[Rfam]
RNA sequence: CUGCGACGGCUACUAAGAGAGCCAUCUGUUGACAGUUAGUGGUCAUUGUCUACUGUCAUGGAAUUGCUCUCUUAAGGAGACGUCGU
Dot-bracket structure: .............(((((.(((..((((..(((.((...............)).))).))))...))).)))))............
RNA: mir-46/mir-47/mir-281 microRNA precursor family
Organism: Steinernema hermaphroditum